[Rfam]
Nucleotides: 089
Stems, first nucleotide, its partner, number of pairs: 003025006027053005033047004060081008
Number, partner (000 for none) and nucleotide at each position: 001000c002000c003025c004024c005023u006022g007021c008020u009000u010000u011000u012000c013000c014000u015000c016000c017000c018000u019000g020008a021007g022006c023005a024004g025003g026000c027053g028052c029051c030050u031049u032000u033047a034046c035045g036044u037000g038000a039000u040000g041000a042000c043000a044036g045035c046034g047033u048000c049031a050030a051029g052028g053027c054000u055000u056000u057000u058000c059000a060081g061080c062079c063078c064077c065076a066075g067074c068000c069000c070000a071000u072000u073000g074067g075066c076065u077064g078063g079062g080061g081060c082000u083000c084000u085000u086000u087000c088000u089000u
A member of the RNA family "Burkholderia RNA 7 (anti-hemB)" from Ideonella livida, 89 nucleotides long. Rfam's curators write: This RNA motif was identified by computational search in b-proteobacteria Burkholderia. Lineage of the source: Bacteria > Pseudomonadati > Burkholderiales > Sphaerotilaceae > Ideonella. The family has 26 seed sequences and 479 matches in Rfam 15.1. It is annotated as a small RNA.